[Rfam]
RNA: ASpks TB sRNA
Organism: Streptomyces sp. Rer75
RNA sequence: CUUGAGCGACCCCAGCCACAGCGGCUGACCCUCGGCACGCCCCUGCCCGUACGUGGCCAGCAGCGCCUGCGCCUC
Numbered sequence: 001c002u003u004g005a006g007c008g009a010c011c012c013c014a015g016c017c018a019c020a021g022c023g024g025c026u027g028a029c030c031c032u033c034g035g036c037a038c039g040c041c042c043c044u045g046c047c048c049g050u051a052c053g054u055g056g057c058c059a060g061c062a063g064c065g066c067c068u069g070c071g072c073c074u075c
Stems, first nucleotide, its partner, number of pairs: 014026004031071001033069001038065002043060003047056003